[Rfam]
RNA: Small Cajal body specific RNA 4
Organism: Alligator sinensis
Nucleotides: 128
Stems, first nucleotide, its partner, number of pairs: 002060002004057006017044003021040006067121003078112002080109007091100002
Number, partner (000 for none) and nucleotide at each position: 001000a002060c003059u004057g005056g006055a007054g008053g009052g010000c011000u012000a013000a014000g015000a016000a017044g018043g019042u020000g021040g022039a023038g024037u025036c026035u027000g028000g029000a030000a031000a032000g033000u034000g035026a036025g037024a038023c039022u040021c041000u042019g043018c044017u045000u046000a047000u048000a049000c050000u051000g052009u053008c054007c055006u056005c057004c058000u059003a060002g061000a062000a063000a064000a065000a066000g067121g068120g069119g070000a071000u072000g073000g074000a075000g076000a077000g078112a079111g080109c081108a082107g083106u084105c085104c086103u087000a088000c089000u090000g091100g092099c093000a094000g095000a096000g097000a098000a099092g100091c101000a102000a103086a104085g105084g106083a107082c108081u109080g110000a111079c112078u113000g114000c115000g116000u117000c118000a119069u120068c121067c122000a123000a124000c125000a126000c127000u128000g